[Rfam]
Description:
This 505-nucleotide RNA from Saccharothrix syringae belongs to the Rfam family "Saccharopolyspora sRNA 350". The family's RNA type in Rfam is antisense RNA. A search with the family's covariance model found it, with a score of 78 bits. Its family is annotated with regulation of secondary metabolite biosynthetic process in the Gene Ontology. A reference for the family is Liu et al. (2013), "Prediction and characterization of small non-coding RNAs related to secondary metabolites in Saccharopolyspora erythraea", PLoS One.

RNA sequence: GUGGCGGUGAACUCCCAGUGCUCCUCGGCACCGGUGAGCACCCGGUCGCCGAAGUGGUCGCCGCCCGCCAGGGUGUCGAGCACGGCCCGCUCGCCGAACUCGCCGCGCGUGGCGCGUUCGACCCUGCCGUGCGCGAUCAGGAACACCGCCCCGGCCGGGUCGCCCGCCGCCGCGACGACCUCGCCCCGGGCGUACUCCCGCCGUUCGAACCGGUCGGCCAGCGCGGUGAGCACCCCGUCGUCCGGGAAGUCGCGCAGCACCGGCAGUCCGCGCAGGCCCUGCGGGACCGGCCGGAUGCCGUCACCCACGCCGGUGAAGGCCACGCGACCGCCGCCCACCGCGACGGUGAGCCGCCGGUUGACCCGGUAGGAGCCCGCCUCGGUCGCCACCCACGGCAGCUCCCGCAGCAGCCACCGCGGCGUGACGGCCCGCAUCCGCGGCGGGGACUUGGUCGUGGUGGCCAGGUUCCGCGCCGCCGCGGUGCCCAGGCUGCGCGGCUGCCCGG
Number, nucleotide and partner (000 for none) at each position: 001g000002u000003g000004g000005c000006g390007g389008u388009g387010a000011a000012c000013u000014c382015c381016c000017a000018g328019u327020g325021c324022u322023c319024c318025u316026c315027g000028g000029c000030a000031c313032c312033g311034g310035u309036g308037a000038g306039c000040a000041c000042c000043c000044g305045g304046u303047c000048g302049c000050c300051g299052a000053a000054g233055u232056g000057g000058u229059c228060g227061c226062c225063g224064c223065c000066c109067g108068c107069c000070a000071g000072g000073g000074u000075g103076u000077c102078g101079a100080g099081c000082a000083c096084g095085g094086c093087c000088c000089g000090c000091u000092c000093g086094c085095c084096g083097a000098a000099c080100u079101c078102g077103c075104c000105g000106c000107g068108c067109g066110u000111g000112g000113c000114g000115c000116g222117u221118u220119c000120g219121a000122c217123c216124c000125u000126g000127c212128c000129g210130u209131g206132c000133g204134c203135g202136a000137u000138c000139a000140g197141g000142a000143a196144c000145a000146c000147c192148g191149c000150c000151c000152c000153g000154g000155c189156c188157g187158g186159g185160u000161c183162g000163c177164c000165c174166g173167c172168c000169g000170c000171c000172g167173c166174g165175a000176c000177g163178a000179c000180c000181u000182c000183g161184c000185c159186c158187c157188g156189g155190g000191c148192g147193u000194a000195c000196u143197c140198c000199c000200g000201c000202c135203g134204u133205u000206c131207g000208a000209a130210c129211c000212g127213g000214u000215c000216g123217g122218c000219c120220a118221g117222c116223g064224c063225g062226g061227u060228g059229a058230g000231c000232a055233c054234c000235c000236c294237g000238u000239c000240g000241u000242c290243c289244g288245g287246g000247a000248a000249g000250u284251c283252g282253c281254g280255c000256a000257g278258c275259a000260c000261c270262g269263g000264c000265a000266g000267u000268c000269c262270g261271c000272g000273c000274a000275g258276g000277c000278c257279c000280u254281g253282c252283g251284g250285g000286a000287c245288c244289g243290g242291c000292c000293g000294g236295a000296u000297g000298c000299c051300g050301u000302c048303a046304c045305c044306c038307a000308c036309g035310c034311c033312g032313g031314u000315g026316a025317a000318g024319g023320c000321c000322a022323c000324g021325c020326g000327a019328c018329c342330g341331c340332c000333g000334c000335c000336c000337a000338c000339c000340g331341c330342g329343a000344c000345g000346g000347u000348g000349a000350g000351c000352c000353g377354c376355c000356g374357g373358u000359u000360g000361a000362c370363c369364c000365g000366g000367u000368a000369g363370g362371a000372g000373c357374c356375c000376g354377c353378c000379u000380c000381g015382g014383u000384c000385g000386c000387c009388a008389c007390c006391c431392a000393c000394g428395g000396c426397a000398g000399c423400u000401c421402c000403c418404g417405c416406a000407g415408c000409a000410g000411c000412c000413a000414c000415c407416g405417c404418g403419g000420c000421g401422u000423g399424a000425c000426g396427g000428c394429c000430c000431g391432c000433a000434u000435c000436c000437g476438c475439g474440g473441c000442g471443g000444g469445g468446a467447c465448u464449u463450g462451g461452u460453c000454g000455u000456g000457g000458u000459g000460g452461c451462c450463a449464g448465g447466u000467u446468c445469c444470g000471c442472g000473c440474c439475g438476c437477c504478g503479c000480g502481g501482u500483g000484c000485c000486c497487a000488g495489g000490c000491u000492g000493c000494g000495c488496g000497g486498c000499u000500g482501c481502c480503c478504g477505g000